[Rfam]
RNA sequence: GAGCUGUGAUGAUUCUUAUGUGAUAGUGUCAAAAAGGUUCCUCACAAUCGUCUAAUUACAGACAACAUCAGUGCAUCUGAGCUU
Numbered sequence: 001g002a003g004c005u006g007u008g009a010u011g012a013u014u015c016u017u018a019u020g021u022g023a024u025a026g027u028g029u030c031a032a033a034a035a036g037g038u039u040c041c042u043c044a045c046a047a048u049c050g051u052c053u054a055a056u057u058a059c060a061g062a063c064a065a066c067a068u069c070a071g072u073g074c075a076u077c078u079g080a081g082c083u084u
Base pairs, nucleotide, nucleotide: 001084002083003082004081
RNA: small nucleolar RNA snoR114